Ribosomal protein L20 leader: a 138-nucleotide sequence from Listeria fleischmannii. Rfam describes the family as follows. This family is a putative r-protein leader autoregulatory structure found in B. subtilis and other low-GC Gram-positive bacteria. It is located in the 5' untranslated regions of mRNAs encoding initiation factor 3 followed by ribosomal proteins L35 and L20 (infC-rpmI-rplT). Rfam links the family to the GO term regulation of gene expression. The source organism's lineage runs through Bacteria, Bacillati, Bacilli, Listeriaceae and Listeria fleischmannii.
[Rfam]
RNA sequence: ACAAGAAAGAAGAAGCAACCCGCUUCUCGCCUCGUUAACAUGUGUUUUCAGGCAAAAAGUUCAAUUUUUCGUUACGCCUGUUGGUGUGACUUUGAAUCGGCGGGUUUGCAAUUUGCAAACUCGCUUUUUGUAUGUCUG
Numbered sequence: 001a002c003a004a005g006a007a008a009g010a011a012g013a014a015g016c017a018a019c020c021c022g023c024u025u026c027u028c029g030c031c032u033c034g035u036u037a038a039c040a041u042g043u044g045u046u047u048u049c050a051g052g053c054a055a056a057a058a059g060u061u062c063a064a065u066u067u068u069u070c071g072u073u074a075c076g077c078c079u080g081u082u083g084g085u086g087u088g089a090c091u092u093u094g095a096a097u098c099g100g101c102g103g104g105u106u107u108g109c110a111a112u113u114u115g116c117a118a119a120c121u122c123g124c125u126u127u128u129u130g131u132a133u134g135u136c137u138g
Base pairs, nucleotide, nucleotide: 011027012026013025014024015023016022029053030052031051037046038045039044099125100124101123102122103121104120105119106118107117108116109115110114
Dot-bracket structure: ..........((((((.....)))))).(((.....(((....)))....))).............................................((((((((((((...)))))))))))).............